[Rfam]
RNA sequence: CGACGACCCGGGCCAGGUAGGCGAAUCGGGGACCCAACCGAGCACUGGGGUGAAUCCGCGCGGUUCGCGCGGUAGGGCGUCCUUCUCGUCCGAAUCCGUCAGCUAACCCGGUAGGCGGCCGCGGGAGAAGGG
Numbered sequence: 001c002g003a004c005g006a007c008c009c010g011g012g013c014c015a016g017g018u019a020g021g022c023g024a025a026u027c028g029g030g031g032a033c034c035c036a037a038c039c040g041a042g043c044a045c046u047g048g049g050g051u052g053a054a055u056c057c058g059c060g061c062g063g064u065u066c067g068c069g070c071g072g073u074a075g076g077g078c079g080u081c082c083u084u085c086u087c088g089u090c091c092g093a094a095u096c097c098g099u100c101a102g103c104u105a106a107c108c109c110g111g112u113a114g115g116c117g118g119c120c121g122c123g124g125g126a127g128a129a130g131g132g
Stems, first nucleotide, its partner, number of pairs: 001117002004114001009023002025112006035047002048097003056072004075091004

c-di-AMP riboswitch aptamer (ydaO/yuaA leader): a 132-nucleotide RNA sequence from Asanoa hainanensis. The source organism's lineage runs through Bacteria, Actinomycetes, Micromonosporales, Micromonosporaceae and Asanoa. Pairs were carried over by alignment from the consensus structure.